[Rfam]
RNA: small nucleolar RNA snoR134
Organism: Dorcoceras hygrometricum
RNA sequence: ACGCACGUAGUCUCCCGGGCUCCUCGGAGAAAAUCGACGCUGAAGAAAAGGCCCCAAUACUCGUGCCAAAUCGACGCCGCCAAGUGUUGCAGAUUCGUCUAUGUACCUUACCUUUUCAAGGCAAAUCUGUGUCAAAUCGGCGGCUACAUUU
Numbered sequence: 001a002c003g004c005a006c007g008u009a010g011u012c013u014c015c016c017g018g019g020c021u022c023c024u025c026g027g028a029g030a031a032a033a034u035c036g037a038c039g040c041u042g043a044a045g046a047a048a049a050g051g052c053c054c055c056a057a058u059a060c061u062c063g064u065g066c067c068a069a070a071u072c073g074a075c076g077c078c079g080c081c082a083a084g085u086g087u088u089g090c091a092g093a094u095u096c097g098u099c100u101a102u103g104u105a106c107c108u109u110a111c112c113u114u115u116u117c118a119a120g121g122c123a124a125a126u127c128u129g130u131g132u133c134a135a136a137u138c139g140g141c142g143g144c145u146a147c148a149u150u151u
Stems, first nucleotide, its partner, number of pairs: 003066005010060002017054005024046002076144006085134002088131006097122003